[Rfam]
RNA sequence: CCCAGCAGUAGUCAGCUGCCCAGUGCCGCUCAGUGCCUGCGGUAGUGUUAUGCUGCUGGGACAGAAACGCGCUGCCGAGUCGCUCCUGGCACCACGGGCGCUGUUCUAGUGCCAGGUGGUGCUGGGGUUUGGCAGCGCUCUGCAUGCUUGAGAGUGGAGUAACCCCUCCUUGGUGGGGUUAAUCCUAGACUGGAUGCAGACAAC
Numbered sequence: 001c002c003c004a005g006c007a008g009u010a011g012u013c014a015g016c017u018g019c020c021c022a023g024u025g026c027c028g029c030u031c032a033g034u035g036c037c038u039g040c041g042g043u044a045g046u047g048u049u050a051u052g053c054u055g056c057u058g059g060g061a062c063a064g065a066a067a068c069g070c071g072c073u074g075c076c077g078a079g080u081c082g083c084u085c086c087u088g089g090c091a092c093c094a095c096g097g098g099c100g101c102u103g104u105u106c107u108a109g110u111g112c113c114a115g116g117u118g119g120u121g122c123u124g125g126g127g128u129u130u131g132g133c134a135g136c137g138c139u140c141u142g143c144a145u146g147c148u149u150g151a152g153a154g155u156g157g158a159g160u161a162a163c164c165c166c167u168c169c170u171u172g173g174u175g176g177g178g179u180u181a182a183u184c185c186u187a188g189a190c191u192g193g194a195u196g197c198a199g200a201c202a203a204c
Stems, first nucleotide, its partner, number of pairs: 001060009011051002015046006021039003025036002069138009082128005089120002093116001096113002099111004140199006147192001156185003160181007
Shown here is a 204-nucleotide RNA from Mesitornis unicolor, a member of the family "Small nucleolar RNA SNORA74". Its family is annotated with nucleolus and RNA processing in the Gene Ontology. U19 belongs to the H/ACA class of snoRNAs. snoRNAs bind a number of proteins (including dyskerin, Gar1p and Nop10p in the case of the H/ACA class) to form snoRNP complexes. The family's consensus secondary structure was predicted with PFOLD. The organism belongs to Mesitornis, within Eukaryota.